[Rfam]
RNA sequence: AAGCGGAGAACAUUCCGAGCCGGAACACCUAACGGGUCACAGGCCCCACGGUGACCGCGCCGGGGUCGCGCGCCGGAUUACGCGUUGACCCAAAGGGUGCGUUGGAAAACCGACGCGCCUCCCGAUUUGGAAAGGAAGGAUGAAAAUGAAAAA
Numbered sequence: 001a002a003g004c005g006g007a008g009a010a011c012a013u014u015c016c017g018a019g020c021c022g023g024a025a026c027a028c029c030u031a032a033c034g035g036g037u038c039a040c041a042g043g044c045c046c047c048a049c050g051g052u053g054a055c056c057g058c059g060c061c062g063g064g065g066u067c068g069c070g071c072g073c074c075g076g077a078u079u080a081c082g083c084g085u086u087g088a089c090c091c092a093a094a095g096g097g098u099g100c101g102u103u104g105g106a107a108a109a110c111c112g113a114c115g116c117g118c119c120u121c122c123c124g125a126u127u128u129g130g131a132a133a134g135g136a137a138g139g140a141u142g143a144a145a146a147u148g149a150a151a152a153a
Stems, first nucleotide, its partner, number of pairs: 003147001011139001013137004019060002023056001026053004034046003063091006095120011121130002
RNA: Molybdenum/Tungsten riboswitch aptamer (Moco RNA motif)
Organism: Desulfotomaculum copahuensis